[Rfam]
RNA sequence: GGAUCAAGUGAUGAGCAAACUGCAACAAUAUGAAGCGCUAAUCUAUGCUGUGAUUCUUAGUAUUUAAGUCUCUGAUGAUC
Numbered sequence: 001g002g003a004u005c006a007a008g009u010g011a012u013g014a015g016c017a018a019a020c021u022g023c024a025a026c027a028a029u030a031u032g033a034a035g036c037g038c039u040a041a042u043c044u045a046u047g048c049u050g051u052g053a054u055u056c057u058u059a060g061u062a063u064u065u066a067a068g069u070c071u072c073u074g075a076u077g078a079u080c
Base pairs, nucleotide, nucleotide: 001080002079004078005077006076035049037048038047
This 80-nucleotide RNA sequence from Phoenix dactylifera belongs to the Rfam family "Small nucleolar RNA Z199". By type it is a C/D-box small nucleolar RNA. A search with the family's covariance model found it, with a score of 71 bits. snoZ199 is a C/D box small nucleolar RNA, which acts as a methylation guide RNA for sites on 18S and 25S rRNA. Rice snoZ199 is reported to be homologous to Arabidopsis snoR13. The family has 17 seed sequences and 953 matches in Rfam 15.1.